[Rfam]
RNA sequence: GGCUGAUGAUGCAAUAGUAUUGUCCGUACCAUCUGAGAUCUGGCGACUCCUCUGAUGCGCUUUUUUUCCCCCACUUAUUUCUGACUUUUGAGGCCU
Numbered sequence: 001g002g003c004u005g006a007u008g009a010u011g012c013a014a015u016a017g018u019a020u021u022g023u024c025c026g027u028a029c030c031a032u033c034u035g036a037g038a039u040c041u042g043g044c045g046a047c048u049c050c051u052c053u054g055a056u057g058c059g060c061u062u063u064u065u066u067u068c069c070c071c072c073a074c075u076u077a078u079u080u081c082u083g084a085c086u087u088u089u090g091a092g093g094c095c096u
Stems, first nucleotide, its partner, number of pairs: 001095004
About this RNA:
The record is a 96-nucleotide sequence from Zingiber officinale, which matches "small nucleolar RNA snoR117" in Rfam. Rfam links the family to the GO terms nucleolus and RNA processing. The source organism's lineage runs through Eukaryota, Tracheophyta, commelinids, Zingiberaceae and Zingiber. The match comes from Rfam's covariance-model search (45 bits).